[Rfam]
RNA: tRNA
Organism: Pieris brassicae
Nucleotides: 115
Stems, first nucleotide, its partner, number of pairs: 001114007010026003029085004091107005
Number, partner (000 for none) and nucleotide at each position: 001114g002113u003112c004111a005110g006109g007108a008000u009000g010026g011025c012024c013000g014000a015000g016000c017000g018000g019000u020000c021000u022000a023000a024012g025011g026010c027000g028000c029085c030084a031083g032082a033000c034000u035000c036000a037000a038000g039000g040000a041000g042000u043000a044000c045000c046000u047000u048000g049000c050000c051000u052000a053000c054000u055000g056000u057000g058000u059000a060000g061000g062000u063000a064000u065000g066000a067000g068000c069000u070000g071000u072000u073000c074000u075000g076000g077000u078000c079000c080000u081000c082032u083031c084030u085029g086000a087000g088000g089000g090000c091107g092106u093105g094104g095103g096000u097000u098000c099000g100000a101000a102000u103095c104094c105093c106092a107091c108007u109006u110005c111004u112003g113002a114001c115000a